[Rfam]
RNA: Purine riboswitch aptamer
RNA sequence: AGUAAAUAAUUUUAUUUAACUCAUAUAAUCUAAAGAAUAGGGCUUUAGAAGUUUCUACCAUGUUGCCAUAAACAACAUGACUAUGAGUAGCAAUUCAAUACAU
Numbered sequence: 001a002g003u004a005a006a007u008a009a010u011u012u013u014a015u016u017u018a019a020c021u022c023a024u025a026u027a028a029u030c031u032a033a034a035g036a037a038u039a040g041g042g043c044u045u046u047a048g049a050a051g052u053u054u055c056u057a058c059c060a061u062g063u064u065g066c067c068a069u070a071a072a073c074a075a076c077a078u079g080a081c082u083a084u085g086a087g088u089a090g091c092a093a094u095u096c097a098a099u100a101c102a103u
Stems, first nucleotide, its partner, number of pairs: 019088007029049007059079007